[Rfam]
RNA: Lysine riboswitch aptamer
Organism: Mediterraneibacter catenae
RNA sequence: AGGCAGGAUAGAGGUCGCAUUUUUCAAGAGUAUGAUGGCGGAUGUAUCAGGAACAGUAGAACUCAUCAGAAAGGGGAAGAUGCCGAAGGGAUAAGGUGCCUGAAGCUUUGUUCCUGGGCGUGUCGCGAACAGCGGCAUGACUGUCAUCGCAGGAUGGAGAGCUAUCUGAUAU
Numbered sequence: 001a002g003g004c005a006g007g008a009u010a011g012a013g014g015u016c017g018c019a020u021u022u023u024u025c026a027a028g029a030g031u032a033u034g035a036u037g038g039c040g041g042a043u044g045u046a047u048c049a050g051g052a053a054c055a056g057u058a059g060a061a062c063u064c065a066u067c068a069g070a071a072a073g074g075g076g077a078a079g080a081u082g083c084c085g086a087a088g089g090g091a092u093a094a095g096g097u098g099c100c101u102g103a104a105g106c107u108u109u110g111u112u113c114c115u116g117g118g119c120g121u122g123u124c125g126c127g128a129a130c131a132g133c134g135g136c137a138u139g140a141c142u143g144u145c146a147u148c149g150c151a152g153g154a155u156g157g158a159g160a161g162c163u164a165u166c167u168g169a170u171a172u
Stems, first nucleotide, its partner, number of pairs: 006167006017083009033068006087115011116142002119139008144157005